[Rfam]
RNA sequence: UUAAUCAAAUUUGAGGCCAUAGCAGAAGAGCUCAUGGUGCAGCCUGUCAGAUUCCAAUGAAUCUGCAAAUUCUCCA
Numbered sequence: 001u002u003a004a005u006c007a008a009a010u011u012u013g014a015g016g017c018c019a020u021a022g023c024a025g026a027a028g029a030g031c032u033c034a035u036g037g038u039g040c041a042g043c044c045u046g047u048c049a050g051a052u053u054c055c056a057a058u059g060a061a062u063c064u065g066c067a068a069a070u071u072c073u074c075c076a
Base pairs, nucleotide, nucleotide: 015044016043017042022075024073025072026071027070028040030038048065049064050063051062052061053060054059

Shown here is a 76-nucleotide RNA from Crocodylus porosus, a member of the family "Mammalian CPEB3 ribozyme". The mammalian CPEB3 ribozyme is a self cleaving RNA located in the second intron of the CPEB3 gene which belongs to a family of genes regulating messenger RNA polyadenylation. This ribozyme is highly conserved and found only in mammals. The source organism's lineage runs through Eukaryota, Bilateria, Teleostomi, Archelosauria and Crocodylus.